[Rfam]
RNA: Small nucleolar RNA psi18S-1377
RNA sequence: AUGUCCCUGUGUUACCCUAUUUAAAGUCAUCAUUUAAAUUUGGGUGUCAAAAGGGACAUACAUAAAAGUCCUUUAUUCCACAAGCAUUUGUGACUUCAAUCAUAACAUGCUUACUAAAUAAUGGAUACAUCU
Numbered sequence: 001a002u003g004u005c006c007c008u009g010u011g012u013u014a015c016c017c018u019a020u021u022u023a024a025a026g027u028c029a030u031c032a033u034u035u036a037a038a039u040u041u042g043g044g045u046g047u048c049a050a051a052a053g054g055g056a057c058a059u060a061c062a063u064a065a066a067a068g069u070c071c072u073u074u075a076u077u078c079c080a081c082a083a084g085c086a087u088u089u090g091u092g093a094c095u096u097c098a099a100u101c102a103u104a105a106c107a108u109g110c111u112u113a114c115u116a117a118a119u120a121a122u123g124g125a126u127a128c129a130u131c132u
Base pairs, nucleotide, nucleotide: 002058003057004056005055006054007053010049011048016043017042019040021038022037082112083111084110085109086108089104090103091102092101